[Rfam]
RNA: Small nucleolar RNA SNORA70
RNA sequence: CUGCAUCCAAGUAGCUAGCUGACCAGGUUCCUUUCCUCGUGGUGGCCCAGUGUGCAAUGGCUGUAAACAGCAGCCUCCUUCAUGUAGUGUAUGUAAACUGUUGAUUAUACAGGUUGUCCUAACGGACCUUGGGGACAGUU
Numbered sequence: 001c002u003g004c005a006u007c008c009a010a011g012u013a014g015c016u017a018g019c020u021g022a023c024c025a026g027g028u029u030c031c032u033u034u035c036c037u038c039g040u041g042g043u044g045g046c047c048c049a050g051u052g053u054g055c056a057a058u059g060g061c062u063g064u065a066a067a068c069a070g071c072a073g074c075c076u077c078c079u080u081c082a083u084g085u086a087g088u089g090u091a092u093g094u095a096a097a098c099u100g101u102u103g104a105u106u107a108u109a110c111a112g113g114u115u116g117u118c119c120u121a122a123c124g125g126a127c128c129u130u131g132g133g134g135a136c137a138g139u140u
Stems, first nucleotide, its partner, number of pairs: 002056004022051002028045002031042001084127002094116003098112002